[Rfam]
RNA sequence: CUCUGUCGAGGGCCUGAUGCAGGAUCAGGGCGAGGAAGGAG
Numbered sequence: 001c002u003c004u005g006u007c008g009a010g011g012g013c014c015u016g017a018u019g020c021a022g023g024a025u026c027a028g029g030g031c032g033a034g035g036a037a038g039g040a041g
Stems, first nucleotide, its partner, number of pairs: 001030005013023003
RNA: L31-Firmicutes ribosomal protein leader